[Rfam]
RNA sequence: GCACCUCUGGAAAGCCCGGGAUCGACCCCCAGGUCGUGACCGGCACCGACGGAGCAAGCGGGCCCACCCGCGGAAACUCUCAGGUCCCAUGACAGAGCGGGGAGG
Dot-bracket structure: .(..(((((......((((....................)))).(((((..(((....((..........))....))))).))).......)))))..).....
RNA: Glycine riboswitch aptamer
Organism: Kocuria palustris